The record is a 78-nucleotide sequence from Schistosoma japonicum, which matches "mir-3492 microRNA precursor family" in Rfam. The base pairs follow the family's consensus structure, which was predicted with RNAalifold. Rfam links the family to the GO terms RISC complex and miRNA-mediated post-transcriptional gene silencing.
[Rfam]
RNA sequence: AGCCUUAAUUAUACGAGCCGAGAUAUCAUCAAAAACUAGACCGUCAGGACUGAUGAGGCUCUUGAGAUAAGUAAAACG
Numbered sequence: 001a002g003c004c005u006u007a008a009u010u011a012u013a014c015g016a017g018c019c020g021a022g023a024u025a026u027c028a029u030c031a032a033a034a035a036c037u038a039g040a041c042c043g044u045c046a047g048g049a050c051u052g053a054u055g056a057g058g059c060u061c062u063u064g065a066g067a068u069a070a071g072u073a074a075a076a077c078g
Stems, first nucleotide, its partner, number of pairs: 002077001005074002009070004016063002020061003024058001026056005